[Rfam]
RNA sequence: UAUAUUUGCACCUUGAUUCGAAAAUCGGGUCUGUACAUAACAAUCAUUUACAAUAAUAUUAGCAUG
Numbered sequence: 001u002a003u004a005u006u007u008g009c010a011c012c013u014u015g016a017u018u019c020g021a022a023a024a025u026c027g028g029g030u031c032u033g034u035a036c037a038u039a040a041c042a043a044u045c046a047u048u049u050a051c052a053a054u055a056a057u058a059u060u061a062g063c064a065u066g
Base pairs, nucleotide, nucleotide: 015031016030017029018028019027
S15-Flavobacteria ribosomal protein leader: a 66-nucleotide sequence. The family is grouped with related families in Rfam's "Ribosomal Protein S15 Leader clan". The family's consensus secondary structure is taken from published work. It is one of the family's seed sequences.